[Rfam]
RNA sequence: UCAUUUUUUUCCUAGUGAAACUUAUUUAAGUUUGACCAAAUUUAUAGAAAAAUAUAGUAGCAUUUUCAACACAAAACAAACAUAUUAUCAAAAUAUAUUCAAUGCUAGAUUUAAUGAAACUAAUUUGGUGUUUUAGAUGUUGCUAAUUUUUUCUAUAAAUUUGGUCAAACUUAAAGAAGUUUGACUAGGAAAAGAAAUCA
Number, nucleotide and partner (000 for none) at each position: 001u000002c000003a000004u000005u195006u194007u193008u192009u191010u000011c189012c188013u187014a186015g185016u184017g000018a182019a181020a180021c179022u178023u177024a000025u175026u174027u000028a000029a000030g000031u169032u168033u167034g166035a165036c000037c000038a000039a000040a000041u000042u000043u000044a000045u155046a154047g153048a152049a151050a150051a149052a148053u000054a000055u145056a144057g143058u000059a141060g140061c139062a138063u137064u136065u135066u000067c000068a132069a000070c000071a000072c127073a126074a125075a124076a000077c000078a000079a000080a000081c000082a000083u000084a000085u000086u000087a000088u000089c000090a000091a000092a000093a000094u000095a000096u000097a000098u000099u000100c000101a000102a000103u000104g000105c000106u000107a000108g000109a000110u000111u000112u000113a000114a000115u000116g000117a000118a000119a000120c000121u000122a000123a000124u075125u074126u073127g072128g000129u000130g000131u000132u068133u000134u000135a065136g064137a063138u062139g061140u060141u059142g000143c057144u056145a055146a000147u000148u052149u051150u050151u049152u048153c047154u046155a045156u000157a000158a000159a000160u000161u000162u000163g000164g000165u035166c034167a033168a032169a031170c000171u000172u000173a000174a026175a025176g000177a023178a022179g021180u020181u019182u018183g000184a016185c015186u014187a013188g012189g011190a000191a009192a008193a007194g006195a005196a000197a000198u000199c000200a000
Shown here is a 200-nucleotide sequence from Oryza punctata, a member of the family "MIR1435 microRNA precursor family". The source organism's lineage runs through Eukaryota, Poaceae, Oryzoideae, Oryzinae and Oryza. Pairs were carried over by alignment from the consensus structure, which was predicted with RNAalifold.